RNA sequence: GUGCGAGGACGACCUCCCCCAUCCGGGACAAUUGCCGGGACGACCCGG
Numbered sequence: 001g002u003g004c005g006a007g008g009a010c011g012a013c014c015u016c017c018c019c020c021a022u023c024c025g026g027g028a029c030a031a032u033u034g035c036c037g038g039g040a041c042g043a044c045c046c047g048g
Stems, first nucleotide, its partner, number of pairs: 001020001003018001005016004035048005

A member of the RNA family "Guanidine-II riboswitch aptamer (mini-ykkC)" from Roseovarius pacificus, 48 nucleotides long. The match comes from Rfam's covariance-model search (41 bits). Pairs were carried over by alignment from the consensus structure, which is taken from published work. Lineage of the source: Bacteria > Pseudomonadati > Pseudomonadota > Rhodobacterales > Roseovarius.